About this RNA
The record is a 38-nucleotide RNA from Candidatus Syntrophocurvum alkaliphilum, which matches "Selenocysteine insertion sequence 4" in Rfam. Pairs were carried over by alignment from the consensus structure, which was predicted with PFOLD. On this family, see Graentzdoerffer et al., Arch Microbiol 2001: "Molecular analysis of the grd operon coding for genes of the glycine reductase and of the thioredoxin system from Clostridium sticklandii". The source organism's lineage runs through Bacteria, Bacillota, Clostridia, Eubacteriales and Candidatus Syntrophocurvum. Rfam links the family to the GO term selenocysteine incorporation.
[Rfam]
RNA sequence: GGUACAUGUACUCGUUGUGGUGCAACGAUGAUAAAAGA
Numbered sequence: 001g002g003u004a005c006a007u008g009u010a011c012u013c014g015u016u017g018u019g020g021u022g023c024a025a026c027g028a029u030g031a032u033a034a035a036a037g038a
Stems, first nucleotide, its partner, number of pairs: 013027006
Dot-bracket structure: ............((((((...))))))...........